[Rfam]
RNA: ASpks TB sRNA
Organism: Streptomyces caatingaensis
RNA sequence: CUUCAACGAGCCCAGCCACAGGGGCUGUUCCUCCGGCCGGUCCUGGCCGUAGGCGGCGAUCAGGGCCUGGGCCUC
Numbered sequence: 001c002u003u004c005a006a007c008g009a010g011c012c013c014a015g016c017c018a019c020a021g022g023g024g025c026u027g028u029u030c031c032u033c034c035g036g037c038c039g040g041u042c043c044u045g046g047c048c049g050u051a052g053g054c055g056g057c058g059a060u061c062a063g064g065g066c067c068u069g070g071g072c073c074u075c
Base pairs, nucleotide, nucleotide: 014026015025016024017023031071032070033069038065044059047056048055049054